Shown here is a 276-nucleotide sequence from Candidatus Nitrosotalea sp. TS, a member of the family "Archaeal RNase P". The literature on the family includes a 1999 paper in Nucleic Acids Res by Brown, "The Ribonuclease P Database".
[Rfam]
RNA sequence: GCGAGCCGGUGAAUGAGGCACUGCUACGGCAGAGGAAACUCCUCCCUCCAUGCAGCAAAUGCGAUCCGGAGACGGAUAACCAGAGAUGGUUGGCAACAGAACAGAAAAUUAUCCUAUCUGGGGUACUGUGAUGGUGAUACCUGAGAUUCCCAGCAAGGAAUGAAAGAGCUGUCCCGUAUGGAGCAAGGCCAAAUCAAACUAUAAGCGCUGCACUUUGUUUAGGUAGGCCGCAUAGCGAAAUCUCGUAAAACAGAAGGAGGGUUACAGCUGGCACGC
Numbered sequence: 001g002c003g004a005g006c007c008g009g010u011g012a013a014u015g016a017g018g019c020a021c022u023g024c025u026a027c028g029g030c031a032g033a034g035g036a037a038a039c040u041c042c043u044c045c046c047u048c049c050a051u052g053c054a055g056c057a058a059a060u061g062c063g064a065u066c067c068g069g070a071g072a073c074g075g076a077u078a079a080c081c082a083g084a085g086a087u088g089g090u091u092g093g094c095a096a097c098a099g100a101a102c103a104g105a106a107a108a109u110u111a112u113c114c115u116a117u118c119u120g121g122g123g124u125a126c127u128g129u130g131a132u133g134g135u136g137a138u139a140c141c142u143g144a145g146a147u148u149c150c151c152a153g154c155a156a157g158g159a160a161u162g163a164a165a166g167a168g169c170u171g172u173c174c175c176g177u178a179u180g181g182a183g184c185a186a187g188g189c190c191a192a193a194u195c196a197a198a199c200u201a202u203a204a205g206c207g208c209u210g211c212a213c214u215u216u217g218u219u220u221a222g223g224u225a226g227g228c229c230g231c232a233u234a235g236c237g238a239a240a241u242c243u244c245g246u247a248a249a250a251c252a253g254a255a256g257g258a259g260g261g262u263u264a265c266a267g268c269u270g271g272c273a274c275g276c
Stems, first nucleotide, its partner, number of pairs: 001276003005272005010266002013246005021032004037263003041260005046183004051212005059179005064077005078091005092174002097171003112159004118153005133141002187229004196220004
It scores 178 bits against the family's covariance model. The family is grouped with related families in Rfam's "RNaseP clan". From the family's description: Ribonuclease P (RNase P) is a ubiquitous endoribonuclease, found in archaea, bacteria and eukarya as well as chloroplasts and mitochondria. Its best characterised activity is the generation of mature 5'-ends of tRNAs by cleaving the 5'-leader elements of precursor-tRNAs. Cellular RNase Ps are ribonucleoproteins. RNA from bacterial RNase Ps retains its catalytic activity in the absence of the protein subunit, i.e. it is a ribozyme. Isolated eukaryotic and archaeal RNase P RNA has not been shown to retain its catalytic function, but is still essential for the catalytic activity of the holoenzyme. Although the archaeal and eukaryotic holoenzymes have a much greater protein content than the bacterial ones, the RNA cores from all the three lineages are homologous -- helices corresponding to P1, P2, P3, P4, and P10/11 are common to all cellular RNase P RNAs. Yet, there is considerable sequence variation, particularly among the eukaryotic RNAs. Taxonomically the source falls in Nitrosotalea (Archaea, Nitrososphaerota, Nitrososphaeria, Nitrosotaleaceae).